This 133-nucleotide RNA from Streptomyces seoulensis belongs to the Rfam family "Streptomyces-metH RNA". By type it is a small RNA. Taxonomically the source falls in Streptomyces (Bacteria, Bacillati, Actinomycetota, Actinomycetes). The base pairs follow the family's consensus structure, which is taken from published work.

RNA sequence: CGCGUCCGUGUCGUGGACGCCUGUGCCCAUCCAAGCCCACGGGCGGUUACCCUGGCGCCGUGCCCCACGCCCGGUCCCGGCCGGAGCGGGCGCAUAGCCGACAGCCGUCGCACUCAAGGGAGCCCCUUUCAUG
Numbered sequence: 001c002g003c004g005u006c007c008g009u010g011u012c013g014u015g016g017a018c019g020c021c022u023g024u025g026c027c028c029a030u031c032c033a034a035g036c037c038c039a040c041g042g043g044c045g046g047u048u049a050c051c052c053u054g055g056c057g058c059c060g061u062g063c064c065c066c067a068c069g070c071c072c073g074g075u076c077c078c079g080g081c082c083g084g085a086g087c088g089g090g091c092g093c094a095u096a097g098c099c100g101a102c103a104g105c106c107g108u109c110g111c112a113c114u115c116a117a118g119g120g121a122g123c124c125c126c127u128u129u130c131a132u133g
Stems, first nucleotide, its partner, number of pairs: 061094003068088003097111002100109003
Dot-bracket structure: ............................................................(((....(((...............)))...)))..((.(((....)))))......................